Rfam assigns this 79-nucleotide sequence from Medicago truncatula to the family "MIR5269 microRNA precursor family".
[Rfam]
RNA sequence: UUGGUUUAAAUCAUUGUAGGUCUGCACUUUGAAAAUUGAACUCACACUAUGUGAUGAGACAUACAUUGAUUUCAUCUAA
Numbered sequence: 001u002u003g004g005u006u007u008a009a010a011u012c013a014u015u016g017u018a019g020g021u022c023u024g025c026a027c028u029u030u031g032a033a034a035a036u037u038g039a040a041c042u043c044a045c046a047c048u049a050u051g052u053g054a055u056g057a058g059a060c061a062u063a064c065a066u067u068g069a070u071u072u073c074a075u076c077u078a079a
Stems, first nucleotide, its partner, number of pairs: 001079004006074001008072006015065004023056002025053003029049001031047001

The family's consensus secondary structure was predicted with RNAalifold. A search with the family's covariance model found it, with a score of 67 bits.